[Rfam]
RNA: S10-Clostridia ribosomal protein leader
Organism: Dolosicoccus paucivorans
RNA sequence: UGAUAGCUAAGAAGCGAGAGGUUGCGACACACCCGGACGCUUUGCCACAGACGGGCGCGUCGGAAAUUUUCGUGGAGCGAGUCAUUUUUGAAAUUGACGAGGAGGGAA
Numbered sequence: 001u002g003a004u005a006g007c008u009a010a011g012a013a014g015c016g017a018g019a020g021g022u023u024g025c026g027a028c029a030c031a032c033c034c035g036g037a038c039g040c041u042u043u044g045c046c047a048c049a050g051a052c053g054g055g056c057g058c059g060u061c062g063g064a065a066a067u068u069u070u071c072g073u074g075g076a077g078c079g080a081g082u083c084a085u086u087u088u089u090g091a092a093a094u095u096g097a098c099g100a101g102g103a104g105g106g107a108a
Stems, first nucleotide, its partner, number of pairs: 014073003018070004025062004082107001083104001086103004